The record is a 62-nucleotide RNA sequence from Tupaia belangeri, which matches "U7 small nuclear RNA" in Rfam. The organism belongs to Tupaia belangeri, within Eukaryota. The family's consensus secondary structure was predicted with PFOLD. Rfam describes the family as follows. Animal histone pre-mRNAs are spliced by a different mechanism than nuclear pre-mRNAs and self-splicing introns. This processing involves the U7 snRNP, which contains only one RNA species: U7. The 5' end of U7 RNA is thought to base-pair to a conserved spacer element downstream of the cleavage site in histone pre-mRNA. This family contains a number of annotated U7 pseudogenes.

[Rfam]
RNA sequence: AAGUGUUACAACUCUUUUAGAAUUUGUCCAACAGGUUUUCCAGUUUUUACCAGAAAGUCCUC
Numbered sequence: 001a002a003g004u005g006u007u008a009c010a011a012c013u014c015u016u017u018u019a020g021a022a023u024u025u026g027u028c029c030a031a032c033a034g035g036u037u038u039u040c041c042a043g044u045u046u047u048u049a050c051c052a053g054a055a056a057g058u059c060c061u062c
Stems, first nucleotide, its partner, number of pairs: 034059007043050002